[Rfam]
RNA sequence: GAAGCCACUUGAAGAAACCACACAUGCACCGACACAUGCGGCCGGGUGCCCUCACGGGUUGCCGCAUGCGGGUGCAUGGAGGCCUAAC
Numbered sequence: 001g002a003a004g005c006c007a008c009u010u011g012a013a014g015a016a017a018c019c020a021c022a023c024a025u026g027c028a029c030c031g032a033c034a035c036a037u038g039c040g041g042c043c044g045g046g047u048g049c050c051c052u053c054a055c056g057g058g059u060u061g062c063c064g065c066a067u068g069c070g071g072g073u074g075c076a077u078g079g080a081g082g083c084c085u086a087a088c
Stems, first nucleotide, its partner, number of pairs: 023078008035068008048059004